[Rfam]
This 114-nucleotide RNA sequence from Chelonia mydas belongs to the Rfam family "Potassium channel RNA editing signal". This family represents a group of sequences related to the human potassium channel Kv1.1 hairpin element which directs the efficient modification of an adenosine to inosine by an adenosine deaminase acting on RNA (ADAR). The ADAR modification causes an isoleucine/valine recoding event which lies in the ion-conducting pore of the potassium channel. It is thought that this editing event targets the process of fast inactivation and allows a more rapid recovery from inactivation at negative potentials. It scores 85 bits against the family's covariance model. It is annotated as a cis-regulatory element.
RNA sequence: GUAGGAUAUGGUGACAUUUAUCCUAAGACUCUACUCGGAAAAAUAGUUGGAGGACUGUGUUGCAUUGCUGGAGUGCUGGUAAUCGCCCUGCCCAUACCAAUCAUUGUGAAUAAC
Dot-bracket structure: ((.(..(((((.((....(((...............((.(........(.(.........).)..........).))................)))....)).)))))..).))